[Rfam]
The family of this 93-nucleotide RNA sequence from Nocardia aurantiaca is "SAM riboswitch aptamer (S box leader)". NCBI's taxonomy places the organism under Bacteria, Bacillati, Mycobacteriales, Nocardiaceae, Nocardia. The base pairs follow the family's consensus structure, which is taken from published work.
RNA sequence: CCACCAUCCAGAGCGAUCGAGAGACCUGGCUCGCAGACAUCGCAGCAACCCCCGCGCACGUGGUGCGGGUGCUUCCGCCAGGACCGAUGGAGG
Numbered sequence: 001c002c003a004c005c006a007u008c009c010a011g012a013g014c015g016a017u018c019g020a021g022a023g024a025c026c027u028g029g030c031u032c033g034c035a036g037a038c039a040u041c042g043c044a045g046c047a048a049c050c051c052c053c054g055c056g057c058a059c060g061u062g063g064u065g066c067g068g069g070u071g072c073u074u075c076c077g078c079c080a081g082g083a084c085c086g087a088u089g090g091a092g093g
Stems, first nucleotide, its partner, number of pairs: 001093002004090005013043005021032003026081004044073004049069002051065001053063001077085001